[Rfam]
RNA: RAGATH-8 RNA
RNA sequence: AGAAAUAAAGCAAGUAGGAAGGAACGGGUGAAGUGAUAGGGCUACACGCAAGUGACAUGGUGGUCAGGCUGCCGGAUAGCAGACAGAGCGUGUGAAGAAUAAACAAGACCCGUCAAAGUAGUUGAAGAAAACAGGAACGGUAGGGCAAGAAAGCAAAGUGUUCAGAAUUAGUUCUGACAGGCUGAACCAAACAGCACUUUACCCCUAUACCAAGAAACCGUUAAGUGGAAGAAUCAACCGCACGAGAUGACACAGCACUUUGUUUCA
Numbered sequence: 001a002g003a004a005a006u007a008a009a010g011c012a013a014g015u016a017g018g019a020a021g022g023a024a025c026g027g028g029u030g031a032a033g034u035g036a037u038a039g040g041g042c043u044a045c046a047c048g049c050a051a052g053u054g055a056c057a058u059g060g061u062g063g064u065c066a067g068g069c070u071g072c073c074g075g076a077u078a079g080c081a082g083a084c085a086g087a088g089c090g091u092g093u094g095a096a097g098a099a100u101a102a103a104c105a106a107g108a109c110c111c112g113u114c115a116a117a118g119u120a121g122u123u124g125a126a127g128a129a130a131a132c133a134g135g136a137a138c139g140g141u142a143g144g145g146c147a148a149g150a151a152a153g154c155a156a157a158g159u160g161u162u163c164a165g166a167a168u169u170a171g172u173u174c175u176g177a178c179a180g181g182c183u184g185a186a187c188c189a190a191a192c193a194g195c196a197c198u199u200u201a202c203c204c205c206u207a208u209a210c211c212a213a214g215a216a217a218c219c220g221u222u223a224a225g226u227g228g229a230a231g232a233a234u235c236a237a238c239c240g241c242a243c244g245a246g247a248u249g250a251c252a253c254a255g256c257a258c259u260u261u262g263u264u265u266c267a
Base pairs, nucleotide, nucleotide: 002266003265004264005263006262007261008260009259010258024113025112026111027110028109029108044093045092046091047090048089049088053066054065055064056063069082070081071080072079121238122237123236124235125234131226132225136222137221138220139219140218141217142206143205144204145203150200151199152198153197159179160178161177163176164175165174166173181195182194183193184192